[Rfam]
RNA sequence: UGCAUAAAUUUGUCUUUUUCCGCUUUGCUGCUGAUUUUUUUCGUACGUCAACGGCAAAGUGAAAAGGUCUCCUUUAUGAGAA
Dot-bracket structure: ..(((.((...(.(((((((..(((..(((.((.(.........)...)).)))..))).))))))).)...)).)))....

Rfam assigns this 82-nucleotide RNA from Bombyx mori to the family "mir-316 microRNA precursor family". Rfam links the family to the GO terms miRNA-mediated post-transcriptional gene silencing and RISC complex. The base pairs follow the family's consensus structure, which was predicted with RNAalifold. The sequence is in the family's curated seed alignment. For this family Rfam cites "The small RNA profile during Drosophila melanogaster development" (Aravin et al., Dev Cell, 2003).